This 81-nucleotide RNA sequence from Tupaia belangeri belongs to the Rfam family "Small nucleolar RNA U105B". The family has 13 seed sequences and 132 matches in Rfam 15.1. The match comes from Rfam's covariance-model search (53 bits). Rfam links the family to the GO terms RNA processing and nucleolus. NCBI's taxonomy places the organism under Eukaryota, Eutheria, Euarchontoglires, Tupaiidae, Tupaia belangeri.

RNA sequence: UUUUGUAGCGGCAGGUGACAGUGCUGCUGUUUAGACUCUGUGAUUGCUCCCUCUCAAAGGAAACACCCUGAUGCACUGUGA
Numbered sequence: 001u002u003u004u005g006u007a008g009c010g011g012c013a014g015g016u017g018a019c020a021g022u023g024c025u026g027c028u029g030u031u032u033a034g035a036c037u038c039u040g041u042g043a044u045u046g047c048u049c050c051c052u053c054u055c056a057a058a059g060g061a062a063a064c065a066c067c068c069u070g071a072u073g074c075a076c077u078g079u080g081a
Stems, first nucleotide, its partner, number of pairs: 005076002008074003011022002014019001033048002